RNA sequence: CGUCUCCUCCACCCUCCUCCUUUGGUGUGGAUUUGCCCAGGCACCCAGUGCCUGGGCUUUUUCU
Numbered sequence: 001c002g003u004c005u006c007c008u009c010c011a012c013c014c015u016c017c018u019c020c021u022u023u024g025g026u027g028u029g030g031a032u033u034u035g036c037c038c039a040g041g042c043a044c045c046c047a048g049u050g051c052c053u054g055g056g057c058u059u060u061u062u063c064u
Base pairs, nucleotide, nucleotide: 008031009030010029011028012027013025014024035057036056037055038054039053040052041051042050
Rfam assigns this 64-nucleotide RNA from Azoarcus olearius to the family "Betaproteobacteria toxic small RNA". Lineage of the source: Bacteria > Pseudomonadati > Betaproteobacteria > Zoogloeaceae > Azoarcus. A search with the family's covariance model found it, with a score of 59 bits.